Rfam assigns this 135-nucleotide RNA sequence from Galemys pyrenaicus to the family "Small nucleolar RNA SNORA42/SNORA80 family". The members of this family belong to the H/ACA class of snoRNAs that guide the sites of modification of uridines to pseudouridines. Human ACA42 (SNORA42) was cloned from HeLa cells by immunoprecipitation with anti-GAR1 antibody. Its is predicted to guide the pseudouridylation of residues U109 and U572 of 18S rRNA. ACA42 shares the same host gene with ACA26, ACA46, ACA50. This family also includes mammalian snoRNA ACA67 (SNORA80) which was identified by computational screening and its expression in mouse experimentally verified by Northern blot and primer extension analysis. ACA67 is proposed to guide the pseudouridylation of the same 18S rRNA residues as ACA42. Its family is annotated with nucleolus and RNA processing in the Gene Ontology.
[Rfam]
RNA sequence: GCAUGGAAAUGGAUUUAUGGUAGGCCCUUCUUUGUGGGUCUCUCAUAGUGUACCAUGCGAGAGUGAGGUGCAGCCUCGAACCAUUGCCCAGUCCUUCACCUGUGGACUGUGAGCACUGAAAGGGGCUGUACAUUU
Numbered sequence: 001g002c003a004u005g006g007a008a009a010u011g012g013a014u015u016u017a018u019g020g021u022a023g024g025c026c027c028u029u030c031u032u033u034g035u036g037g038g039u040c041u042c043u044c045a046u047a048g049u050g051u052a053c054c055a056u057g058c059g060a061g062a063g064u065g066a067g068g069u070g071c072a073g074c075c076u077c078g079a080a081c082c083a084u085u086g087c088c089c090a091g092u093c094c095u096u097c098a099c100c101u102g103u104g105g106a107c108u109g110u111g112a113g114c115a116c117u118g119a120a121a122g123g124g125g126c127u128g129u130a131c132a133u134u135u
Stems, first nucleotide, its partner, number of pairs: 001058004005053001007051001015048006022041003025037002071128006082118002087113001089109006